The record is a 377-nucleotide sequence from Cronobacter sakazakii, which matches "Bacterial RNase P class A" in Rfam. The organism belongs to Cronobacter sakazakii, within Bacteria. Rfam's curators put it in the seed alignment.
RNA sequence: GAAGCUGACCAGACAGUCGCCGCUUCGUCGUCGUCCUUUCGGGGAGACGGACGGAGGGGAGGAAAGUCCGGGCUCCAUAGGGCAGGGUGCCAGGUAACGCCUGGGGGGCGCAAGCCUACGACCAGUGCAACAGAGAGCAAACCGCCGAUGGCCCACGCAAGUGGGAUCAGGUAAGGGUGAAAGGGUGCGGUAAGAGCGCACCGCGCGUCUGGCAACAGUUCGCGGCACGGUAAACUCCACCCGGAGCAAGGCCAAAUAGGGGUUCACAAGGUACGGCCCGUACUGAACCCGGGUAGGCUGCUUGAGCCAGUGAGCGAUUGCUGGCCUAGAUGAAUGACUGUCCACGACAGAACCCGGCUUACCGGUCAGCUUCACAC
Number, nucleotide and partner (000 for none) at each position: 001g373002a372003a371004g370005c369006u368007g367008a366009c365010c364011a000012g342013a341014c340015a339016g338017u337018c336019g000020c059021c058022g000023c056024u055025u054026c053027g052028u051029c000030g000031u000032c000033g000034u000035c000036c000037u000038u000039u000040c000041g000042g000043g000044g000045a000046g000047a000048c000049g000050g000051a028052c027053g026054g025055a024056g023057g000058g021059g020060a000061g000062g000063a000064a360065a359066g358067u000068c357069c356070g355071g354072g353073c246074u245075c244076c243077a000078u000079a000080g279081g278082g277083c276084a000085g242086g241087g240088u239089g238090c104091c103092a102093g101094g100095u000096a000097a000098c000099g000100c094101c093102u092103g091104g090105g119106g117107g116108g115109c114110g000111c000112a000113a000114g109115c108116c107117u106118a000119c105120g237121a236122c000123c000124a000125g235126u234127g231128c230129a000130a000131c000132a000133g000134a000135g000136a000137g000138c000139a000140a000141a000142c176143c175144g172145c171146c170147g000148a000149u169150g168151g167152c000153c165154c164155a000156c000157g000158c000159a000160a000161g000162u000163g000164g154165g153166a000167u151168c150169a149170g146171g145172u144173a000174a000175g143176g142177g000178u000179g000180a000181a000182a000183g000184g202185g201186u200187g199188c198189g197190g000191u000192a000193a000194g000195a000196g000197c189198g188199c187200a186201c185202c184203g226204c224205g223206c222207g221208u000209c218210u217211g216212g000213c000214a000215a000216c211217a210218g209219u000220u000221c207222g206223c205224g204225g000226c203227a000228c000229g000230g128231u127232a000233a000234a126235c125236u121237c120238c089239a088240c087241c086242c085243g076244g075245a074246g073247c000248a000249a000250g299251g298252c297253c296254a000255a000256a000257u000258a000259g000260g290261g289262g288263u287264u286265c285266a000267c000268a000269a000270g284271g283272u282273a281274c280275g000276g083277c082278c081279c080280g274281u273282a272283c271284u270285g265286a264287a263288c262289c261290c260291g000292g000293g000294u000295a000296g253297g252298c251299u250300g000301c000302u000303u000304g000305a000306g325307c324308c323309a322310g321311u320312g319313a318314g000315c000316g000317a000318u313319u312320g311321c310322u309323g308324g307325c306326c000327u000328a000329g000330a000331u000332g000333a000334a000335u000336g018337a017338c016339u015340g014341u013342c012343c000344a000345c000346g000347a000348c000349a000350g000351a000352a000353c072354c071355c070356g069357g068358c066359u065360u064361a000362c000363c000364g010365g009366u008367c007368a006369g005370c004371u003372u002373c001374a000375c000376a000377c000